This 175-nucleotide RNA sequence from Clostridium acidisoli belongs to the Rfam family "Lysine riboswitch aptamer". The base pairs follow the family's consensus structure, which is taken from published work.
RNA sequence: AACUAAGGUAGAGGUGCGUUAUUUAAUAGUAUAUCUGUGGAUAAAAGCAAAUAUGAAACGGAUAAAAAGGAAAUGGCGCCGAAGUGUAUAGUGGAAGCUUUAACACUAUAUAACUGGUUUUACAUAAAACAUAUGUAAAACUGUCACAACCAUUUUGUGGAGGGCUAUCAUUCAA
Dot-bracket structure: ......(((((....(((((((((.......(((((((...................)))))))......)))))))))...(((((((((((..........)))))))).)))(((((((((((.....))))))))))).((((((.....))))))....)))))......
The source organism's lineage runs through Bacteria, Clostridia, Clostridiaceae, Clostridium and Clostridium acidisoli.